[Rfam]
RNA sequence: CGUCUAUUAUUUGCAGUCAGUAACAAAGAUUCAUCCUUGUGUCAAUCAUACAACAAGGGGGGUCUUUGUCACUCAGUGUAACUAAUAGCCAUAC
Numbered sequence: 001c002g003u004c005u006a007u008u009a010u011u012u013g014c015a016g017u018c019a020g021u022a023a024c025a026a027a028g029a030u031u032c033a034u035c036c037u038u039g040u041g042u043c044a045a046u047c048a049u050a051c052a053a054c055a056a057g058g059g060g061g062g063u064c065u066u067u068g069u070c071a072c073u074c075a076g077u078g079u080a081a082c083u084a085a086u087a088g089c090c091a092u093a094c
Stems, first nucleotide, its partner, number of pairs: 004088006011081005017075001019073003023069010034059007041051002